[Rfam]
RNA: Glycine riboswitch aptamer
RNA sequence: AUACGCUGAUUGGGAGAGUCUGUUAUAGAUACGAUACUGUAUUUUAUGGCAGCGCCGAAGGAGCACAAGCCUCAUAAUCUCUCAGGCAACAGGGCCAAUCAGAGUGA
Numbered sequence: 001a002u003a004c005g006c007u008g009a010u011u012g013g014g015a016g017a018g019u020c021u022g023u024u025a026u027a028g029a030u031a032c033g034a035u036a037c038u039g040u041a042u043u044u045u046a047u048g049g050c051a052g053c054g055c056c057g058a059a060g061g062a063g064c065a066c067a068a069g070c071c072u073c074a075u076a077a078u079c080u081c082u083c084a085g086g087c088a089a090c091a092g093g094g095c096c097a098a099u100c101a102g103a104g105u106g107a
Stems, first nucleotide, its partner, number of pairs: 006102008020052010054087003057083002061081003